Overview:
Small nucleolar RNA SNORD103/SNORD85: an 83-nucleotide RNA sequence from Atrichornis clamosus. NCBI's taxonomy places the organism under Eukaryota, Gnathostomata, Theropoda, Neoaves, Atrichornis. It is annotated as a C/D-box small nucleolar RNA. Its family is annotated with RNA processing and nucleolus in the Gene Ontology. The literature on the family includes a 2001 paper in EMBO J by Huttenhofer et al., "RNomics: an experimental approach that identifies 201 candidates for novel, small, non-messenger RNAs in mouse".
RNA sequence: UCUGGCAGUGAUGACACGCUUGCCCUCUCUGAGAACUCUGUUCGGUAAUGAGCCUGUCCUGCGCUCACAGCAGCUGAGCCAGA
Numbered sequence: 001u002c003u004g005g006c007a008g009u010g011a012u013g014a015c016a017c018g019c020u021u022g023c024c025c026u027c028u029c030u031g032a033g034a035a036c037u038c039u040g041u042u043c044g045g046u047a048a049u050g051a052g053c054c055u056g057u058c059c060u061g062c063g064c065u066c067a068c069a070g071c072a073g074c075u076g077a078g079c080c081a082g083a
Stems, first nucleotide, its partner, number of pairs: 001083006